[Rfam]
RNA sequence: CGUCCAGGGCCAGGCAAGAUGUCGGCAUAGCUGAGAGCACCUCCCGACGGCCGGCUGUGCCGCAUCCAGCCAUGCCCUGCGUCC
Numbered sequence: 001c002g003u004c005c006a007g008g009g010c011c012a013g014g015c016a017a018g019a020u021g022u023c024g025g026c027a028u029a030g031c032u033g034a035g036a037g038c039a040c041c042u043c044c045c046g047a048c049g050g051c052c053g054g055c056u057g058u059g060c061c062g063c064a065u066c067c068a069g070c071c072a073u074g075c076c077c078u079g080c081g082u083c084c
Stems, first nucleotide, its partner, number of pairs: 005079006013071003018066004023062009